Source information
Selenocysteine transfer RNA: an 86-nucleotide RNA from Ardeotis kori.

[Rfam]
Nucleotides: 086
Stems, first nucleotide, its partner, number of pairs: 001086007009078001012027006028046005048061003063077001065075002
Number, partner (000 for none) and nucleotide at each position: 001086g002085c003084c004083c005082g006081g007080a008000u009078g010000a011000c012027c013026c014025u015024c016023a017022g018000u019000g020000g021000u022017c023016u024015g025014g026013g027012g028046u029045g030044c031043a032042g033000a034000c035000a036000g037000c038000u039000a040000a041000c042032c043031u044030g045029u046028a047000g048061c049060u050059g051000c052000c053000a054000a055000g056000c057000a058000a059050c060049a061048g062000a063077g064000g065075g066074g067000u068000u069000c070000a071000u072000u073000u074066c075065c076000a077063c078009c079000u080007u081006u082005c083004g084003g085002g086001c